[Rfam]
RNA sequence: UGCAAGUAUUUUACGGUUAAGAAAUAAUUGUCUCUUGUACAGAUAGUGUAUUAAUCU
Numbered sequence: 001u002g003c004a005a006g007u008a009u010u011u012u013a014c015g016g017u018u019a020a021g022a023a024a025u026a027a028u029u030g031u032c033u034c035u036u037g038u039a040c041a042g043a044u045a046g047u048g049u050a051u052u053a054a055u056c057u
Stems, first nucleotide, its partner, number of pairs: 018037005024031002